[Rfam]
RNA sequence: ACAGUACAAACUGAGCAGGCGAUAAACCCGAAAUGGGUUUAUGGGGCUGGGCCUUACGGCAACAGGGAAUCGGAACCUGUGGGACAGUA
Numbered sequence: 001a002c003a004g005u006a007c008a009a010a011c012u013g014a015g016c017a018g019g020c021g022a023u024a025a026a027c028c029c030g031a032a033a034u035g036g037g038u039u040u041a042u043g044g045g046g047c048u049g050g051g052c053c054u055u056a057c058g059g060c061a062a063c064a065g066g067g068a069a070u071c072g073g074a075a076c077c078u079g080u081g082g083g084a085c086a087g088u089a
Base pairs, nucleotide, nucleotide: 010088011087012086013085016083018048019047020046022042023041024040025039026038027037051060052059053058062080063079064078065077066076